[Rfam]
RNA sequence: UCUCCAGGUUCCCCCGUGUGACUCCCAGUGAACCCACGGCCUUUUCCUUACAUAACCAAGCACUAUUGUGAGUGGUACUGCUUGCCUGAAGCCUGGGAGGAUUGUGAAACAUGCCAGACAAAGUGGAGUAAAGGAACCUGAUG
Numbered sequence: 001u002c003u004c005c006a007g008g009u010u011c012c013c014c015c016g017u018g019u020g021a022c023u024c025c026c027a028g029u030g031a032a033c034c035c036a037c038g039g040c041c042u043u044u045u046c047c048u049u050a051c052a053u054a055a056c057c058a059a060g061c062a063c064u065a066u067u068g069u070g071a072g073u074g075g076u077a078c079u080g081c082u083u084g085c086c087u088g089a090a091g092c093c094u095g096g097g098a099g100g101a102u103u104g105u106g107a108a109a110c111a112u113g114c115c116a117g118a119c120a121a122a123g124u125g126g127a128g129u130a131a132a133g134g135a136a137c138c139u140g141a142u143g
Stems, first nucleotide, its partner, number of pairs: 001143001003141001005140008021129005056096003060092002064088001068085007
Dot-bracket structure: (.(.((((((((........(((((..............................(((.((..(...(((((((....)))))))..)..)).)))............................)))))...))))))))).)
Record summary
Shown here is a 143-nucleotide RNA from Cavia porcellus, a member of the family "small Cajal body-specific RNA 17". By type it is a small Cajal body RNA. For this family Rfam cites "Cajal body-specific small nuclear RNAs: a novel class of 2'-O-methylation and pseudouridylation guide RNAs" (Darzacq et al., EMBO J, 2002). Rfam's curators write: scaRNAs are a specific class of small nuclear RNAs which localise to the Cajal bodies and guide the modification of RNA polymerase II transcribed spliceosomal RNAs U1, U2, U4, U5 and U12. The complete human U12-22/U4-8 scaRNA is composed of two tandem C/D box domains (termed U12-22 and U4-8). Rfam 15.1 lists 262 matches to the family in 128 species.